A member of the RNA family "ROOL RNA", 637 nucleotides long. Rfam classes the family as a small RNA. It is one of the family's seed sequences. Rfam's curators write: Firmicutes, Fusobacteria (1 example), Tenericutes (1 example).

RNA sequence: AACUUUAAACUAUGCAGCACUGAACCCAGUGUGAGAAAUCGAAAGCCAAGACCAUGGCUCUGGGAUAGGUCUGAAUGAUGUGGCUCAGCUUGAAGGAUACUUCAAGUCAACCAUUGGCUAUACUAUAUAUUGAAGUGUAUAGACAGCUUCUUCGCUCAAAACGGAGGUGGGAGUAUCAAGGAUCUAGUGCUAGGUACUAUGAGGAUACAGCACAACAAAGGCGUGCCAAUCGUAAUUGAAAGGUAAUGUGAAUAGCAUUACCCUAGAAUCCUAAAACCUGAUGGCGUCGAAAACCAUGUAGUUAGUAGGAAGUUCGAAUCAAGGUGGCAGAACACAAGAAAACGUAUGCAGAAAUACAUACGAAAUAAAUCGUCAGAAAGUUGGUGUAAGUAGCUAAAGCGUGUUCAGUUCAAACUAGAAUGGAAAGAUCCGCACAAGUAGAAUGCGAAAAACUAUUUUUGACUGAAUGGUUGGUGAACAUGGCAGGUAUCAAUCCUGUUGCAGCUUGGGUUCCUUCGGGAAUUGGCAAUGAUAGUCGGAGAACGUACAACUCCAGGCUCAGAUCAUUGUUCUGUAUGGCUCAAUCCGUAGUAAUAUUGUAAGUAAGGGGAAGCCCUCUGUGCUGUAUAGUUUUAAG
Numbered sequence: 001a002a003c004u005u006u007a008a009a010c011u012a013u014g015c016a017g018c019a020c021u022g023a024a025c026c027c028a029g030u031g032u033g034a035g036a037a038a039u040c041g042a043a044a045g046c047c048a049a050g051a052c053c054a055u056g057g058c059u060c061u062g063g064g065a066u067a068g069g070u071c072u073g074a075a076u077g078a079u080g081u082g083g084c085u086c087a088g089c090u091u092g093a094a095g096g097a098u099a100c101u102u103c104a105a106g107u108c109a110a111c112c113a114u115u116g117g118c119u120a121u122a123c124u125a126u127a128u129a130u131u132g133a134a135g136u137g138u139a140u141a142g143a144c145a146g147c148u149u150c151u152u153c154g155c156u157c158a159a160a161a162c163g164g165a166g167g168u169g170g171g172a173g174u175a176u177c178a179a180g181g182a183u184c185u186a187g188u189g190c191u192a193g194g195u196a197c198u199a200u201g202a203g204g205a206u207a208c209a210g211c212a213c214a215a216c217a218a219a220g221g222c223g224u225g226c227c228a229a230u231c232g233u234a235a236u237u238g239a240a241a242g243g244u245a246a247u248g249u250g251a252a253u254a255g256c257a258u259u260a261c262c263c264u265a266g267a268a269u270c271c272u273a274a275a276a277c278c279u280g281a282u283g284g285c286g287u288c289g290a291a292a293a294c295c296a297u298g299u300a301g302u303u304a305g306u307a308g309g310a311a312g313u314u315c316g317a318a319u320c321a322a323g324g325u326g327g328c329a330g331a332a333c334a335c336a337a338g339a340a341a342a343c344g345u346a347u348g349c350a351g352a353a354a355u356a357c358a359u360a361c362g363a364a365a366u367a368a369a370u371c372g373u374c375a376g377a378a379a380g381u382u383g384g385u386g387u388a389a390g391u392a393g394c395u396a397a398a399g400c401g402u403g404u405u406c407a408g409u410u411c412a413a414a415c416u417a418g419a420a421u422g423g424a425a426a427g428a429u430c431c432g433c434a435c436a437a438g439u440a441g442a443a444u445g446c447g448a449a450a451a452a453c454u455a456u457u458u459u460u461g462a463c464u465g466a467a468u469g470g471u472u473g474g475u476g477a478a479c480a481u482g483g484c485a486g487g488u489a490u491c492a493a494u495c496c497u498g499u500u501g502c503a504g505c506u507u508g509g510g511u512u513c514c515u516u517c518g519g520g521a522a523u524u525g526g527c528a529a530u531g532a533u534a535g536u537c538g539g540a541g542a543a544c545g546u547a548c549a550a551c552u553c554c555a556g557g558c559u560c561a562g563a564u565c566a567u568u569g570u571u572c573u574g575u576a577u578g579g580c581u582c583a584a585u586c587c588g589u590a591g592u593a594a595u596a597u598u599g600u601a602a603g604u605a606a607g608g609g610g611a612a613g614c615c616c617u618c619u620g621u622g623c624u625g626u627a628u629a630g631u632u633u634u635a636a637g
Base pairs, nucleotide, nucleotide: 007634008633009632011630017624021620022619025064026063027062028061029060044059045058046057047056048055066186067185068184069183070182071181078114079113080112081110083108085106090105091104092103093102094101095100116148117147118146119145121143123142124141125140126139127138128137129136130135151171152170153169154168155167198591204587210581213383214382215381216380220374221373222372223371227327229325230324231323245259246258247257248256269310270309271308272307273306278301279300280299282296283295284294287317288316289315290314331405332404333403334402335401344361345360346359347358348357387480393475394474395473396472397471463562464561465560486497487496501575502574503573504523511521512520513519525572526571529568534564535559537556538554540552541551606617607616608615609614